[Rfam]
RNA sequence: UGAGUAGCACAGAUGAUUGCGGCUGCAAUUGCCGAAAGGCAGCAGGUGAGGAAAGUCCGGGCUUCACAGGGCAGGAUGCCGGAUAACGUCCGGUGGAGGUGACUCCAAGGCUAGUGCAACAGAAAUAAACCGCCAGCAUAUGCUGGUAAGGGUGGAAAGGCAGUGUAAGGGACUACCGCGCGGCUGGUAACAGAAGCGGCAGAUGUAAACCCCAUCCGAAGCAAGACCGAAUAAAAGCGAUACGGCGGCCCGUCGUGCUUUAGGUAGGUUGCUUGAGCCUGCUGGUAACAGCAGGACUAGAUAGAUAAUCAUCUGAUACAUAACCCGGCUUAUAGUGCUGCUCAGUUG
Numbered sequence: 001u002g003a004g005u006a007g008c009a010c011a012g013a014u015g016a017u018u019g020c021g022g023c024u025g026c027a028a029u030u031g032c033c034g035a036a037a038g039g040c041a042g043c044a045g046g047u048g049a050g051g052a053a054a055g056u057c058c059g060g061g062c063u064u065c066a067c068a069g070g071g072c073a074g075g076a077u078g079c080c081g082g083a084u085a086a087c088g089u090c091c092g093g094u095g096g097a098g099g100u101g102a103c104u105c106c107a108a109g110g111c112u113a114g115u116g117c118a119a120c121a122g123a124a125a126u127a128a129a130c131c132g133c134c135a136g137c138a139u140a141u142g143c144u145g146g147u148a149a150g151g152g153u154g155g156a157a158a159g160g161c162a163g164u165g166u167a168a169g170g171g172a173c174u175a176c177c178g179c180g181c182g183g184c185u186g187g188u189a190a191c192a193g194a195a196g197c198g199g200c201a202g203a204u205g206u207a208a209a210c211c212c213c214a215u216c217c218g219a220a221g222c223a224a225g226a227c228c229g230a231a232u233a234a235a236a237g238c239g240a241u242a243c244g245g246c247g248g249c250c251c252g253u254c255g256u257g258c259u260u261u262a263g264g265u266a267g268g269u270u271g272c273u274u275g276a277g278c279c280u281g282c283u284g285g286u287a288a289c290a291g292c293a294g295g296a297c298u299a300g301a302u303a304g305a306u307a308a309u310c311a312u313c314u315g316a317u318a319c320a321u322a323a324c325c326c327g328g329c330u331u332a333u334a335g336u337g338c339u340g341c342u343c344a345g346u347u348g
Stems, first nucleotide, its partner, number of pairs: 001344010011333001012313007020048002023045004053331003057328005062221004069251004074217005079093005094108001095106004109212002114210002116206003130151002132147006159177002162174003178200001179198003184193003225270004234261005242256005278295007
The record is a 348-nucleotide RNA sequence from Eubacterium sp. CAG:38, which matches "Bacterial RNase P class A" in Rfam. The family's RNA type in Rfam is ribozyme. It scores 298 bits against the family's covariance model.